RNA sequence: GCUGAGGAAUGAUGACACAAAAGGCCGAAUUGCAGUGUCCCCGUCUACAGUUUGCUCUCUGUGGGCUCACGGUGACAAAACUUCCUGAAGCGAAACAGCGCUCUGACCUCAGC
Numbered sequence: 001g002c003u004g005a006g007g008a009a010u011g012a013u014g015a016c017a018c019a020a021a022a023g024g025c026c027g028a029a030u031u032g033c034a035g036u037g038u039c040c041c042c043g044u045c046u047a048c049a050g051u052u053u054g055c056u057c058u059c060u061g062u063g064g065g066c067u068c069a070c071g072g073u074g075a076c077a078a079a080a081c082u083u084c085c086u087g088a089a090g091c092g093a094a095a096c097a098g099c100g101c102u103c104u105g106a107c108c109u110c111a112g113c
Base pairs, nucleotide, nucleotide: 001113002112003111004110005109006108007107014103015102024033025032036097037096041092042090044088045087050070051069054066055065056064057063071084072083074081
RNA: Small nucleolar RNA SNORD89